MIR6274 microRNA precursor family: a 104-nucleotide RNA sequence from Prunus dulcis.
Pairs were carried over by alignment from the consensus structure, which was predicted with RNAalifold.
RNA sequence: GGAUUACAUUUUUUGCUAUCCCGAUCAAUAACACAAUGACACGUAAGAUCAAUUUUUCAUGUGUCAUUGUGUUAUUAACUGGGAAUAGCAAAACAAUACUAUCC
Numbered sequence: 001g002g003a004u005u006a007c008a009u010u011u012u013u014u015g016c017u018a019u020c021c022c023g024a025u026c027a028a029u030a031a032c033a034c035a036a037u038g039a040c041a042c043g044u045a046a047g048a049u050c051a052a053u054u055u056u057u058c059a060u061g062u063g064u065c066a067u068u069g070u071g072u073u074a075u076u077a078a079c080u081g082g083g084a085a086u087a088g089c090a091a092a093a094c095a096a097u098a099c100u101a102u103c104c
Stems, first nucleotide, its partner, number of pairs: 001104004011093009020083004025078001027076018046057003